RNA sequence: AAAGACAUCUUACCGGACAGCGUUAGAGUUGCCGUGUUUACGUCUAAUACUGUCAGGUAAAGAUGUCUAA
Dot-bracket structure: ..((((((((((((.(((((.((((((...............)))))).))))).))))).)))))))..

Background
The family of this 70-nucleotide sequence from Dinothrombium tinctorium is "mir-8/mir-141/mir-200 microRNA precursor family". For this family Rfam cites "New microRNAs from mouse and human" (Lagos-Quintana et al., RNA, 2003). The family has 164 seed sequences and 2,669 matches in Rfam 15.1. Taxonomically the source falls in Dinothrombium (Eukaryota, Metazoa, Anystina, Trombidioidea).